[Rfam]
A member of the RNA family "Bacterial RNase P class A" from Arthrobacter psychrolactophilus, 381 nucleotides long.
A search with the family's covariance model found it, with a score of 312 bits.
NCBI's taxonomy places the organism under Bacteria, Actinomycetota, Actinomycetes, Micrococcaceae, Arthrobacter.
The family's consensus secondary structure is taken from published work.

RNA sequence: UAGGGCAGCUAGGCAACCGCGCGUCACGCAAGUGGCUCGAGGAACGUCCGGGCUCCACAGAACAGGGUGGUGGGUAACGCCCACUCGGGGUAACCCGCAGGACAGUGCCACAGAGAAUAGACCGCCCGCACGGUUUCGUACCGGAGCGGGUAAGGGUGAAACGGUGGUGUAAGAGACCACCAGUUCCCUAGGUGACUAGGGAAGCUAGGUAAACCCCACCCGGAGCAAGGCCAGACAGGGCAUGAUUGAGGGCUGUUCGCCCGAGUGCCUGGGUAGGCUGCUAGAGGGCGUCGGCAACGGCGUUCGUAGAUGGAUGGUUGCCUCUCCGCCGCGGGUAACUUCGGCGGAUGACAAAACCCGGCGUAUCGGCUGCCCUAUCCA
Numbered sequence: 001u002a003g004g005g006c007a008g009c010u011a012g013g014c015a016a017c018c019g020c021g022c023g024u025c026a027c028g029c030a031a032g033u034g035g036c037u038c039g040a041g042g043a044a045c046g047u048c049c050g051g052g053c054u055c056c057a058c059a060g061a062a063c064a065g066g067g068u069g070g071u072g073g074g075u076a077a078c079g080c081c082c083a084c085u086c087g088g089g090g091u092a093a094c095c096c097g098c099a100g101g102a103c104a105g106u107g108c109c110a111c112a113g114a115g116a117a118u119a120g121a122c123c124g125c126c127c128g129c130a131c132g133g134u135u136u137c138g139u140a141c142c143g144g145a146g147c148g149g150g151u152a153a154g155g156g157u158g159a160a161a162c163g164g165u166g167g168u169g170u171a172a173g174a175g176a177c178c179a180c181c182a183g184u185u186c187c188c189u190a191g192g193u194g195a196c197u198a199g200g201g202a203a204g205c206u207a208g209g210u211a212a213a214c215c216c217c218a219c220c221c222g223g224a225g226c227a228a229g230g231c232c233a234g235a236c237a238g239g240g241c242a243u244g245a246u247u248g249a250g251g252g253c254u255g256u257u258c259g260c261c262c263g264a265g266u267g268c269c270u271g272g273g274u275a276g277g278c279u280g281c282u283a284g285a286g287g288g289c290g291u292c293g294g295c296a297a298c299g300g301c302g303u304u305c306g307u308a309g310a311u312g313g314a315u316g317g318u319u320g321c322c323u324c325u326c327c328g329c330c331g332c333g334g335g336u337a338a339c340u341u342c343g344g345c346g347g348a349u350g351a352c353a354a355a356a357c358c359c360g361g362c363g364u365a366u367c368g369g370c371u372g373c374c375c376u377a378u379c380c381a
Stems, first nucleotide, its partner, number of pairs: 001377010011366001012322007020039002023036005044364003048361005053225004060258004065221005070084005085099001086097004100216002105214002107210003122155002124151006131144001163181006183205001184203008229279004238270006250262004286305008